[Rfam]
Annotation:
A member of the RNA family "Bacterial RNase P class A" from Tabrizicola piscis, 435 nucleotides long. The match comes from Rfam's covariance-model search (256 bits).

RNA sequence: GCGGAGGGCUGGAUGGCCGCGGCCCGGGACGCAGGUCUGGGGUCGAGGAAAGUCCGGACUCCCGUUGGCAAGGGUGCCGGGUAAUCCCCGGCGGGGGCAACCCCAGGGAAAGCGCCACAGAGAAGAGACUUCCACGCGAUGACCGAAGGUUCGCCUUCGCGACCGUGUGGUAAAGGUGAAACGGUGGGGUAAAAGCCCACCGCGGGACGGGUAACCGGACCGGCACGGCAAGCCCCACCCGGAGCAAUGCCAAAUAGGGGCCUCGCGCGGGGGCUGGUCUCGGCAACGGGAUACCGCCCGCAGGGAUGCCAACGCCCGAGAGGCCCGGGUUGGCAGCUUGACCGCCGUGGUAACACGGUUGGCAGAGGAAUGGUCAUCCAGCCCCGGGCUACGGUCCGGGGUGGACAAAAUCCGGCUUACAGGCUCUCCGCGCAC
Numbered sequence: 001g002c003g004g005a006g007g008g009c010u011g012g013a014u015g016g017c018c019g020c021g022g023c024c025c026g027g028g029a030c031g032c033a034g035g036u037c038u039g040g041g042g043u044c045g046a047g048g049a050a051a052g053u054c055c056g057g058a059c060u061c062c063c064g065u066u067g068g069c070a071a072g073g074g075u076g077c078c079g080g081g082u083a084a085u086c087c088c089c090g091g092c093g094g095g096g097g098c099a100a101c102c103c104c105a106g107g108g109a110a111a112g113c114g115c116c117a118c119a120g121a122g123a124a125g126a127g128a129c130u131u132c133c134a135c136g137c138g139a140u141g142a143c144c145g146a147a148g149g150u151u152c153g154c155c156u157u158c159g160c161g162a163c164c165g166u167g168u169g170g171u172a173a174a175g176g177u178g179a180a181a182c183g184g185u186g187g188g189g190u191a192a193a194a195g196c197c198c199a200c201c202g203c204g205g206g207a208c209g210g211g212u213a214a215c216c217g218g219a220c221c222g223g224c225a226c227g228g229c230a231a232g233c234c235c236c237a238c239c240c241g242g243a244g245c246a247a248u249g250c251c252a253a254a255u256a257g258g259g260g261c262c263u264c265g266c267g268c269g270g271g272g273g274c275u276g277g278u279c280u281c282g283g284c285a286a287c288g289g290g291a292u293a294c295c296g297c298c299c300g301c302a303g304g305g306a307u308g309c310c311a312a313c314g315c316c317c318g319a320g321a322g323g324c325c326c327g328g329g330u331u332g333g334c335a336g337c338u339u340g341a342c343c344g345c346c347g348u349g350g351u352a353a354c355a356c357g358g359u360u361g362g363c364a365g366a367g368g369a370a371u372g373g374u375c376a377u378c379c380a381g382c383c384c385c386g387g388g389c390u391a392c393g394g395u396c397c398g399g400g401g402u403g404g405a406c407a408a409a410a411u412c413c414g415g416c417u418u419a420c421a422g423g424c425u426c427u428c429c430g431c432g433c434a435c
Base pairs, nucleotide, nucleotide: 001431002430003429004428005427006426007425008424009423010422011420012378013377014376015375016374017373018372020045021044022043023042024041025040027038028037050418051417052416054415055414056413057412058411059244060243061242062241072240073239074238075237076236077091078090079089080088081087092106093104094103095102096101107235108234112233113232114229115228116227129175130174132170133169134168135167136166137165138164183201184200185199186198187197188196202224203222204221205220208217209216210215248335249334250333251332258326259325260324261323262322263321342361344359345358346357347356348355349354